[Rfam]
RNA sequence: GGAUGCGAUAGAGGCGCGGUAAGCAUUAGUAUCUGUGUGAUAAUGGAUGCCAUCCACAGGGUGGCCGACAGCGGGGAUUUAUGUCCCGGAGGCCGGCAGGCCGGAGAACACAGGGAAAGGGAUUACUGCCGAAACAGAUUCUGUCUGCCGGCGGAAUGUGUUGGGAUGCAGUCAAACAGGCUGCAUACUCUCACUUUUAAAGUGGUGGCGCUAUUGGCUGG
Dot-bracket structure: .....((((((....(((((((.(.......(((((((.....................................................................)))))))......).)))))))...((((.(((((((......))))))).))))((.((((((((.....)))))))).)).((((((...)))))).....)))))).....
RNA: Lysine riboswitch aptamer